[Rfam]
RNA sequence: CUCCGCGUUUGGCAAUGGUAGAACUCACUGGUGAGGUGCCGGGUCCGGUGGUUCUAGACUUGCCAACCGUGGGG
Numbered sequence: 001c002u003c004c005g006c007g008u009u010u011g012g013c014a015a016u017g018g019u020a021g022a023a024c025u026c027a028c029u030g031g032u033g034a035g036g037u038g039c040c041g042g043g044u045c046c047g048g049u050g051g052u053u054c055u056a057g058a059c060u061u062g063c064c065a066a067c068c069g070u071g072g073g074g
Stems, first nucleotide, its partner, number of pairs: 002073005009066007019056006026050006
RNA: mir-182 microRNA precursor family
Organism: Carlito syrichta